[Rfam]
Nucleotides: 096
Base pairs, nucleotide, nucleotide: 002091003090004089005088006087007086012080013079014078015077017076018075019074020073025072026071027070
Number, partner (000 for none) and nucleotide at each position: 001000g002091c003090g004089c005088c006087g007086g008000c009000u010000u011000a012080g013079c014078u015077c016000a017076g018075u019074g020073g021000u022000u023000a024000c025072u026071u027070c028000a029000c030000u031000u032000u033000c034000a035000a036000c037000u038000g039000u040000u041000u042000g043000a044000a045000a046000c047000g048000u049000c050000u051000a052000u053000a054000c055000c056000u057000u058000c059000u060000c061000c062000g063000g064000a065000g066000g067000g068000u069000c070027g071026a072025a073020c074019c075018a076017c077015g078014g079013g080012c081000g082000c083000u084000g085000u086007c087006u088005g089004g090003c091002g092000u093000u094000u095000u096000c
This 96-nucleotide RNA from Megalops atlanticus belongs to the Rfam family "Vault RNA". The literature on the family includes a 2009 paper in Mol Biol Evol by Stadler et al., "Evolution of Vault RNAs". It scores 69 bits against the family's covariance model. Rfam describes the family as follows. This family of RNAs are found as part of the enigmatic vault ribonucleoprotein complex. The complex consists of a major vault protein (MVP), two minor vault proteins (VPARP and TEP1), and several small untranslated RNA molecules. It has been suggested that the vault complex is involved in drug resistance. Rfam classes the family as a non-coding RNA gene. Lineage of the source: Eukaryota > Eumetazoa > Deuterostomia > Neopterygii > Megalops.